[Rfam]
Shown here is a 93-nucleotide sequence from Microcebus murinus, a member of the family "U5 spliceosomal RNA". Gene Ontology terms of the family: spliceosomal tri-snRNP complex assembly and U5 snRNP. The source organism's lineage runs through Eukaryota, Bilateria, Tetrapoda, Strepsirrhini and Microcebus.

RNA sequence: AUACUCUGGUUUCUCUUCAGACUAAAGAUUUCCGUGGAGAGGAACAAUUCUGAGUUUUAUACCAAUUUUUUGAGGUCUUGCUUUAGCAAGACU
Numbered sequence: 001a002u003a004c005u006c007u008g009g010u011u012u013c014u015c016u017u018c019a020g021a022c023u024a025a026a027g028a029u030u031u032c033c034g035u036g037g038a039g040a041g042g043a044a045c046a047a048u049u050c051u052g053a054g055u056u057u058u059a060u061a062c063c064a065a066u067u068u069u070u071u072g073a074g075g076u077c078u079u080g081c082u083u084u085a086g087c088a089a090g091a092c093u
Stems, first nucleotide, its partner, number of pairs: 003055004009045011024031002073093001075092006
For this family Rfam cites "The spliceosomal snRNAs of Caenorhabditis elegans" (Thomas et al., Nucleic Acids Res, 1990). Rfam's curators write: U5 RNA is a component of both types of known spliceosome. The precise function of this molecule is unknown, though it is known that the 5' loop is required for splice site selection and p220 binding, and that both the 3' stem-loop and the Sm site are important for Sm protein binding and cap methylation.